Record summary:
This 75-nucleotide RNA sequence from Monodelphis domestica belongs to the Rfam family "mir-17 microRNA precursor family". A reference for the family is Lagos-Quintana et al. (2001), "Identification of novel genes coding for small expressed RNAs", Science. Rfam 15.1 lists 4,687 matches to the family in 648 species. The base pairs follow the family's consensus structure, which was predicted with RNAalifold.
[Rfam]
RNA sequence: UCGGUUGUGUAAAAGUGCUUAUAGUGCAGGUAGGUCGUGUAACUACUGCCCUGUGAGCACUUCCAACAUGACCAC
Numbered sequence: 001u002c003g004g005u006u007g008u009g010u011a012a013a014a015g016u017g018c019u020u021a022u023a024g025u026g027c028a029g030g031u032a033g034g035u036c037g038u039g040u041a042a043c044u045a046c047u048g049c050c051c052u053g054u055g056a057g058c059a060c061u062u063c064c065a066a067c068a069u070g071a072c073c074a075c
Base pairs, nucleotide, nucleotide: 004072005071006070007069009067010066013062014061015060016059017058018057019056020055021054022053023052024051026049027048029047030046031045032044033043